[Rfam]
RNA sequence: UAGUAGAUGCACCCUGAUGGCAACGCCCGGAAUUACUCUUGGGCGUUUUUUUU
Numbered sequence: 001u002a003g004u005a006g007a008u009g010c011a012c013c014c015u016g017a018u019g020g021c022a023a024c025g026c027c028c029g030g031a032a033u034u035a036c037u038c039u040u041g042g043g044c045g046u047u048u049u050u051u052u053u
Stems, first nucleotide, its partner, number of pairs: 003012002024045006030038002
The family of this 53-nucleotide RNA sequence from Zarconia navalis is "Nitrogen stress-induced RNA 1". By type it is a small RNA. Rfam 15.1 lists 962 matches to the family in 163 species. Taxonomically the source falls in Zarconia navalis (Bacteria, Bacillati, Cyanophyceae, Zarconia).